The family of this 136-nucleotide RNA from Acrocarpospora pleiomorpha is "Group II catalytic intron D1-D4-4". Rfam describes the family as follows. Group II introns are found in rRNA, tRNA and mRNA of organelles in fungi, plants and protists, and also in mRNA in bacteria. A reference for the family is Bonen and Vogel (2001), "The ins and outs of group II introns", Trends Genet. The base pairs follow the family's consensus structure.

RNA sequence: CUGCCGGUGGAAGUCCGGUCCGGGUAGCUGUCCGGAGGCCCGGUAGCUGACUGGCGGCGUCAGGGAGAAACUCCUGGCGUCGAAGCCCAGUGUCGAAAGCCCCGUUGGGGGAGCGAAGGUGCGGUCCGUAGCGUGA
Numbered sequence: 001c002u003g004c005c006g007g008u009g010g011a012a013g014u015c016c017g018g019u020c021c022g023g024g025u026a027g028c029u030g031u032c033c034g035g036a037g038g039c040c041c042g043g044u045a046g047c048u049g050a051c052u053g054g055c056g057g058c059g060u061c062a063g064g065g066a067g068a069a070a071c072u073c074c075u076g077g078c079g080u081c082g083a084a085g086c087c088c089a090g091u092g093u094c095g096a097a098a099g100c101c102c103c104g105u106u107g108g109g110g111g112a113g114c115g116a117a118g119g120u121g122c123g124g125u126c127c128g129u130a131g132c133g134u135g136a
Stems, first nucleotide, its partner, number of pairs: 020043005050091005055082006064073001065071001100110004113129003